[Rfam]
This 94-nucleotide RNA sequence from Erpetoichthys calabaricus belongs to the Rfam family "Small nucleolar RNA SNORD21". It scores 71 bits against the family's covariance model. The family's consensus secondary structure was predicted with PFOLD. Lineage of the source: Eukaryota > Bilateria > Gnathostomata > Polypteridae > Erpetoichthys. The literature on the family includes a 1994 paper in Nucleic Acids Res by Qu et al., "U21, a novel small nucleolar RNA with a 13 nt. complementarity to 28S rRNA, is encoded in an intron of ribosomal protein L5 gene in chicken and mammals". The family's RNA type in Rfam is C/D-box small nucleolar RNA. Its family is annotated with nucleolus and RNA processing in the Gene Ontology.

RNA sequence: GCUUUAUGAUGACUUUUCUUGAACUGAGCAAAUUGGAGUUGGUCCUUCAUCUGCAUAUGAUGUUGCCUUGUUUCAAGACGGGACUGAAAGCAGU
Numbered sequence: 001g002c003u004u005u006a007u008g009a010u011g012a013c014u015u016u017u018c019u020u021g022a023a024c025u026g027a028g029c030a031a032a033u034u035g036g037a038g039u040u041g042g043u044c045c046u047u048c049a050u051c052u053g054c055a056u057a058u059g060a061u062g063u064u065g066c067c068u069u070g071u072u073u074c075a076a077g078a079c080g081g082g083a084c085u086g087a088a089a090g091c092a093g094u
Base pairs, nucleotide, nucleotide: 001091002090003089004088